Lysine riboswitch aptamer: a 185-nucleotide RNA from Periweissella cryptocerci. A search with the family's covariance model found it, with a score of 98 bits. The organism belongs to Periweissella, within Bacteria. The base pairs follow the family's consensus structure, which is taken from published work.

[Rfam]
RNA sequence: AUAAUUCAUAGAGGUUGCAACCAACAAGAGUAAUUGAUCGAAGUCUACUACAAAAGGCAUUGAUGGUCAGUGAAAGGGGCGGUUGCCGAAAGAUUGAUAGAUGUAGCUAUUCAAUUUUGGGACGUUGUUUAAGAGAUGACGAACUGUCGUAGCGAAAAAGUCGGCUACGGGGCGCUAUCGACAAU
Number, nucleotide and partner (000 for none) at each position: 001a000002u000003a000004a000005u000006u180007c000008a178009u177010a176011g175012a000013g000014g000015u000016u000017g086018c085019a084020a083021c082022c081023a000024a000025c078026a000027a000028g000029a000030g000031u000032a000033a071034u070035u069036g068037a067038u066039c065040g064041a000042a000043g000044u000045c000046u000047a000048c000049u000050a000051c000052a000053a000054a000055a000056g000057g000058c000059a000060u000061u000062g000063a000064u040065g039066g038067u037068c036069a035070g034071u033072g000073a000074a000075a000076g000077g000078g025079g000080c000081g022082g021083u020084u019085g018086c017087c000088g000089a000090a118091a117092g116093a115094u114095u113096g112097a111098u109099a108100g107101a000102u000103g000104u000105a000106g000107c100108u099109a098110u000111u097112c096113a095114a094115u093116u092117u091118u090119g145120g144121g000122a000123c141124g140125u139126u138127g137128u136129u135130u000131a000132a000133g000134a000135g129136a128137u127138g126139a125140c124141g123142a000143a000144c120145u119146g000147u170148c169149g168150u167151a166152g165153c164154g000155a000156a000157a000158a000159a000160g000161u000162c000163g000164g153165c152166u151167a150168c149169g148170g147171g000172g000173c000174g000175c011176u010177a009178u008179c000180g006181a000182c000183a000184a000185u000